[Rfam]
RNA sequence: GAUUCCCCGGAGAAUGAACUCCGGGAAGAAAAUAAAUAAAGAGAAUAUAGUAGGAAUGAACGAACAUGUUUCAAUA
Numbered sequence: 001g002a003u004u005c006c007c008c009g010g011a012g013a014a015u016g017a018a019c020u021c022c023g024g025g026a027a028g029a030a031a032a033u034a035a036a037u038a039a040a041g042a043g044a045a046u047a048u049a050g051u052a053g054g055a056a057u058g059a060a061c062g063a064a065c066a067u068g069u070u071u072c073a074a075u076a
Base pairs, nucleotide, nucleotide: 004027006025007024008023009022010021011020012019058071059070060069061068

A member of the RNA family "Plastid-rpl20 3UTR RNA" from Bomarea edulis, 76 nucleotides long. Plastid rpl20 is a non-coding RNA (ncRNA) recognised in plastids. It was found in the three prime untranslated region (3UTR) of rpl20 gene, it presence in the 3UTR region sugest a role in transcript maduration. The sequence is in the family's curated seed alignment. By type it is a cis-regulatory element. The organism belongs to Bomarea, within Eukaryota. Pairs were carried over by alignment from the consensus structure, which was predicted with LocARNA.